This 91-nucleotide sequence from Sulfitobacter guttiformis belongs to the Rfam family "Selenocysteine transfer RNA".
RNA sequence: GGAGGUGACCGGAGUCUGGUGGCUUCCCUGGUCUUCAACACCAUGGACACGCAUAUGCUGCGUGUGGUGGGUUCGAUUCCCAUCCACCUCC
Numbered sequence: 001g002g003a004g005g006u007g008a009c010c011g012g013a014g015u016c017u018g019g020u021g022g023c024u025u026c027c028c029u030g031g032u033c034u035u036c037a038a039c040a041c042c043a044u045g046g047a048c049a050c051g052c053a054u055a056u057g058c059u060g061c062g063u064g065u066g067g068u069g070g071g072u073u074c075g076a077u078u079c080c081c082a083u084c085c086a087c088c089u090c091c
Base pairs, nucleotide, nucleotide: 001091002090003089004088005087006086007085008083011026012025013024014023015022016021027045029043030042031041032040047065048064049063050062051061068082069081070080071079

The family's consensus secondary structure is taken from published work.